[Rfam]
RNA sequence: AUAACAACACGGCAAACUUGUUGAAAGACAAGGACGCAAAGCUACGGGCCUACUGCAUAUGCAAUGGCGGCCGGGUUGCAAAU
Numbered sequence: 001a002u003a004a005c006a007a008c009a010c011g012g013c014a015a016a017c018u019u020g021u022u023g024a025a026a027g028a029c030a031a032g033g034a035c036g037c038a039a040a041g042c043u044a045c046g047g048g049c050c051u052a053c054u055g056c057a058u059a060u061g062c063a064a065u066g067g068c069g070g071c072c073g074g075g076u077u078g079c080a081a082a083u
Stems, first nucleotide, its partner, number of pairs: 012037002017032006040077004045073003048068003055062002
This 83-nucleotide RNA from Paenibacillus nanensis belongs to the Rfam family "c-di-GMP-I riboswitch aptamer". A search with the family's covariance model found it, with a score of 75 bits. Lineage of the source: Bacteria > Bacillota > Bacilli > Caryophanales > Paenibacillus.